[Rfam]
RNA sequence: CCUUCUGUUCAGCCAGAAAGUAGCCUAGGGACAGUGCGUCGCCGGUAACGGCGGGGUGCGAAGCGUCCUGACAAUGUAGCCCCAUGAUGUCUGUGGUGCGUGGUCGCCGCGAGGCGCCAUGCAGACCCUGCGAGCAACACGCGGGCGAGGCG
Numbered sequence: 001c002c003u004u005c006u007g008u009u010c011a012g013c014c015a016g017a018a019a020g021u022a023g024c025c026u027a028g029g030g031a032c033a034g035u036g037c038g039u040c041g042c043c044g045g046u047a048a049c050g051g052c053g054g055g056g057u058g059c060g061a062a063g064c065g066u067c068c069u070g071a072c073a074a075u076g077u078a079g080c081c082c083c084a085u086g087a088u089g090u091c092u093g094u095g096g097u098g099c100g101u102g103g104u105c106g107c108c109g110c111g112a113g114g115c116g117c118c119a120u121g122c123a124g125a126c127c128c129u130g131c132g133a134g135c136a137a138c139a140c141g142c143g144g145g146c147g148a149g150g151c152g
Stems, first nucleotide, its partner, number of pairs: 002020002004017004028069005034059004039054006082096005097123004107114002127145006
Notes
A member of the RNA family "Group II catalytic intron D1-D4-7" from Azotobacter vinelandii, 152 nucleotides long. Rfam links the family to the GO term Group II intron splicing. Rfam describes the family as follows. Group II introns are found in rRNA, tRNA and mRNA of organelles in fungi, plants and protists, and also in mRNA in bacteria.